Overview
The record is a 33-nucleotide RNA sequence from Bizionia paragorgiae, which matches "DUF805b RNA" in Rfam. The family is grouped with related families in Rfam's "DUF805 clan". Pairs were carried over by alignment from the consensus structure, which is taken from published work.
RNA sequence: GAAGCGGAACCCGAAAAGCUAAAAGAGUAGGGA
Numbered sequence: 001g002a003a004g005c006g007g008a009a010c011c012c013g014a015a016a017a018g019c020u021a022a023a024a025g026a027g028u029a030g031g032g033a
Stems, first nucleotide, its partner, number of pairs: 003020003010032003